The record is a 270-nucleotide RNA from Bacillus sp. FJAT-49711, which matches "BsrG" in Rfam. bsrE, bsrG and bsrH pair through intermolecular interactions with antisense sRNAs. They form type I toxin/antitoxin system that includes an mRNA encoding for a short, toxic peptide (bsrE, bsrG and bsrH) and an antitoxin that is comprised of an antisense RNA. bsrG encodes a 39-amino-acid toxin, and the 180 nucleotide antisense sRNA called SR4 acts as the antitoxin (they overlap by 123 nucleotides). SR4 interaction with the 3'UTR of bsrG RNA promotes bsrG degradation and inhibits its translation. BsrG interferes with cell envelope biosynthesis, causes membrane invaginations and delocalisation of the cell wall synthesis and initiates autolysis. bsrE RNA encodes 30 amino-acid toxin peptide. For this family Rfam cites "Novel small RNA-encoding genes in the intergenic regions of Bacillus subtilis" (Saito et al., Gene, 2008). Gene Ontology terms of the family: autolysis and toxin activity. Rfam classes the family as a small RNA. A search with the family's covariance model found it, with a score of 64 bits.
[Rfam]
RNA sequence: GGCAUAAUAUAGGGAAGUUAAGGGUGGAAGGCAGUUACCUCCUAGUGAUAGAAAGGGGGUGAUGCCUAUGACUACUUUUCAAACCAUUUAUCUUAUGAUUAGUUUUGCAACUCUCAUUGUUGCCAUACUGUCAUUUCAUAAAAGGGAAAAGUAAAACCACCCUUAGCCUACCGAGCUAACGAGGGUGGUUUUACUUCACCUUAGAAAAAGCCUUCCCAAUCUAACGGGAACUAUAUUGUGCCAGUCGGUAGGGUGUGUCCAGCACCUUAC
Numbered sequence: 001g002g003c004a005u006a007a008u009a010u011a012g013g014g015a016a017g018u019u020a021a022g023g024g025u026g027g028a029a030g031g032c033a034g035u036u037a038c039c040u041c042c043u044a045g046u047g048a049u050a051g052a053a054a055g056g057g058g059g060u061g062a063u064g065c066c067u068a069u070g071a072c073u074a075c076u077u078u079u080c081a082a083a084c085c086a087u088u089u090a091u092c093u094u095a096u097g098a099u100u101a102g103u104u105u106u107g108c109a110a111c112u113c114u115c116a117u118u119g120u121u122g123c124c125a126u127a128c129u130g131u132c133a134u135u136u137c138a139u140a141a142a143a144g145g146g147a148a149a150a151g152u153a154a155a156a157c158c159a160c161c162c163u164u165a166g167c168c169u170a171c172c173g174a175g176c177u178a179a180c181g182a183g184g185g186u187g188g189u190u191u192u193a194c195u196u197c198a199c200c201u202u203a204g205a206a207a208a209a210g211c212c213u214u215c216c217c218a219a220u221c222u223a224a225c226g227g228g229a230a231c232u233a234u235a236u237u238g239u240g241c242c243a244g245u246c247g248g249u250a251g252g253g254u255g256u257g258u259c260c261a262g263c264a265c266c267u268u269a270c
Base pairs, nucleotide, nucleotide: 001242002241003240004239005238007236008235009234011232013213017167018166019165020164021163022162023161024160026157035062036061037060039058040057041056042055043054070132071131072130084097107124110121177203178202179201214229215228216227217226248270249269250268251267252266253265254264255263256262